Source information:
The record is a 181-nucleotide RNA sequence from Shimazuella alba, which matches "Lysine riboswitch aptamer" in Rfam.
RNA sequence: CUGUGUAGUAGAGGUUGCGGUAAAGAAAAGUACUCAUCAGGAGGAUUGGGGUCCUGUGAUAGAUGGGGAAAGGCUUUCAUCGCCGAAGCCAGUCAUUCGCCCAUACGAAUGAUUGACUGGGGUCGUUGUCAAAUAGAUGCGACACUGUCACAAGCUUAGCUUGUGGAGUACUAUCUCACAG
Numbered sequence: 001c002u003g004u005g006u007a008g009u010a011g012a013g014g015u016u017g018c019g020g021u022a023a024a025g026a027a028a029a030g031u032a033c034u035c036a037u038c039a040g041g042a043g044g045a046u047u048g049g050g051g052u053c054c055u056g057u058g059a060u061a062g063a064u065g066g067g068g069a070a071a072g073g074c075u076u077u078c079a080u081c082g083c084c085g086a087a088g089c090c091a092g093u094c095a096u097u098c099g100c101c102c103a104u105a106c107g108a109a110u111g112a113u114u115g116a117c118u119g120g121g122g123u124c125g126u127u128g129u130c131a132a133a134u135a136g137a138u139g140c141g142a143c144a145c146u147g148u149c150a151c152a153a154g155c156u157u158a159g160c161u162u163g164u165g166g167a168g169u170a171c172u173a174u175c176u177c178a179c180a181g
Base pairs, nucleotide, nucleotide: 008174009173010172011171017083018082019081020080021079022077023076024075025074033067034066035065036064037063038062040060087118088117090115091114092113093112094111095110096109097108098107119146120145122143123142124141125140126139129136148166149165150164151163152162153161154160
Lineage of the source: Bacteria > Bacillota > Bacilli > Thermoactinomycetaceae > Shimazuella.